[Rfam]
RNA sequence: GAGAGUGGGGUGAGAAUCCCCACGGCCGAAUAUCCAAGGUUUCCCGGGUAAAGCUGAUCUGCCCGGGGAGAGUCGGGACCUAAGGCGAGGCCGAAAGGCGUAGCCGAUGGACAACAGGUGGAAAGUCCUGUACUGUAAGCAGUCAGAAAUGUGGGGACGCGGAUAGCGAUACCGGACCCGGGUAAGCAGUAUCCGGGGUAAAUACAGUUUAGGGAAGGGAGGAAAAACCCCCUUUAGAAAUAAGCUGUGUGAGUCCGAGCGAACAUAAGUAGCAAAGCCGGAGUAGAGUCCGCCAAGAAAAGCCGCUAUAAAGCUGCCUACACCCGUACCGUAAACCGACACAGGUGGAUGGGGAGAGAAUCCCAAGGCCGA
Numbered sequence: 001g002a003g004a005g006u007g008g009g010g011u012g013a014g015a016a017u018c019c020c021c022a023c024g025g026c027c028g029a030a031u032a033u034c035c036a037a038g039g040u041u042u043c044c045c046g047g048g049u050a051a052a053g054c055u056g057a058u059c060u061g062c063c064c065g066g067g068g069a070g071a072g073u074c075g076g077g078a079c080c081u082a083a084g085g086c087g088a089g090g091c092c093g094a095a096a097g098g099c100g101u102a103g104c105c106g107a108u109g110g111a112c113a114a115c116a117g118g119u120g121g122a123a124a125g126u127c128c129u130g131u132a133c134u135g136u137a138a139g140c141a142g143u144c145a146g147a148a149a150u151g152u153g154g155g156g157a158c159g160c161g162g163a164u165a166g167c168g169a170u171a172c173c174g175g176a177c178c179c180g181g182g183u184a185a186g187c188a189g190u191a192u193c194c195g196g197g198g199u200a201a202a203u204a205c206a207g208u209u210u211a212g213g214g215a216a217g218g219g220a221g222g223a224a225a226a227a228c229c230c231c232c233u234u235u236a237g238a239a240a241u242a243a244g245c246u247g248u249g250u251g252a253g254u255c256c257g258a259g260c261g262a263a264c265a266u267a268a269g270u271a272g273c274a275a276a277g278c279c280g281g282a283g284u285a286g287a288g289u290c291c292g293c294c295a296a297g298a299a300a301a302g303c304c305g306c307u308a309u310a311a312a313g314c315u316g317c318c319u320a321c322a323c324c325c326g327u328a329c330c331g332u333a334a335a336c337c338g339a340c341a342c343a344g345g346u347g348g349a350u351g352g353g354g355a356g357a358g359a360a361u362c363c364c365a366a367g368g369c370c371g372a
Base pairs, nucleotide, nucleotide: 005023006022007021008020009019010018024370025369026368027367032350033349034348035347038330039329043067044066045065046064047063048062052060053059074326075325076324077323079110080109084105085104086103088101090099091098092097114131115130116129117128118127134322135321136320137319139317140316141315142314143313151306152305153304154303159293160292161291162290167286172281173280174279175278177197178196179195180194181193182192198255202250203249204248205247209243210242211241214235215234216233217232218231219230221229222228259273260272262270336345337344352364353363354362355361
RNA: Bacterial large subunit ribosomal RNA, nucleotides 1301 to 1672